[Rfam]
RNA sequence: GACAGACACUCUGGAGAGUCUCGAUGGACGAGCGCCGAAGGUGUACAGCGGAAACCUAUUUUCCGCCAAUCUCUCAGGCAAAAGGACAGGGCAUAUUUU
Numbered sequence: 001g002a003c004a005g006a007c008a009c010u011c012u013g014g015a016g017a018g019u020c021u022c023g024a025u026g027g028a029c030g031a032g033c034g035c036c037g038a039a040g041g042u043g044u045a046c047a048g049c050g051g052a053a054a055c056c057u058a059u060u061u062u063c064c065g066c067c068a069a070u071c072u073c074u075c076a077g078g079c080a081a082a083a084g085g086a087c088a089g090g091g092c093a094u095a096u097u098u099u
Stems, first nucleotide, its partner, number of pairs: 006094001009091005020032004034079003037075002041073001043071001048066007
Glycine riboswitch aptamer: a 99-nucleotide RNA sequence from Clostridiaceae bacterium OM08-6BH.